[Rfam]
RNA: Purine riboswitch aptamer
Organism: Bacillus coahuilensis
RNA sequence: ACUUACUAAUAAGAAACACGUCGUAUAAUAUCGGGAAUAUGGCCCGAAAGUUUCUACCGAGCUACCGUAAAUGGCUUGACUACGAGGUAUUGGAUAUAAGUG
Numbered sequence: 001a002c003u004u005a006c007u008a009a010u011a012a013g014a015a016a017c018a019c020g021u022c023g024u025a026u027a028a029u030a031u032c033g034g035g036a037a038u039a040u041g042g043c044c045c046g047a048a049a050g051u052u053u054c055u056a057c058c059g060a061g062c063u064a065c066c067g068u069a070a071a072u073g074g075c076u077u078g079a080c081u082a083c084g085a086g087g088u089a090u091u092g093g094a095u096a097u098a099a100g101u102g
Base pairs, nucleotide, nucleotide: 018088019087021085022084023083024082025081029049031047032046033045034044035043058078059077060076061075062074063073064072